[Rfam]
RNA sequence: ACUCAUACCUUGCAGAGGAGAUACCAUUAUUGUAAAAGUGGUUUUCCCAGGCUCAUCUAUUGCACUUUGGAUGUGCUGACCCCUGUGAUUUCCCCAAAUGUGGGAAAAUCAACUGCGUAAGUGGGGGACUGUGUUUGUGUUUUCCCCUG
Numbered sequence: 001a002c003u004c005a006u007a008c009c010u011u012g013c014a015g016a017g018g019a020g021a022u023a024c025c026a027u028u029a030u031u032g033u034a035a036a037a038g039u040g041g042u043u044u045u046c047c048c049a050g051g052c053u054c055a056u057c058u059a060u061u062g063c064a065c066u067u068u069g070g071a072u073g074u075g076c077u078g079a080c081c082c083c084u085g086u087g088a089u090u091u092c093c094c095c096a097a098a099u100g101u102g103g104g105a106a107a108a109u110c111a112a113c114u115g116c117g118u119a120a121g122u123g124g125g126g127g128a129c130u131g132u133g134u135u136u137g138u139g140u141u142u143u144c145c146c147c148u149g
Base pairs, nucleotide, nucleotide: 012116013115014114015113017047018046019045020044021043023042024041025040026039027038050077051076052075054073055072056071057070058069086111087110088109089107090106091105093103094102123148124147125146126145127144128143131140132139133138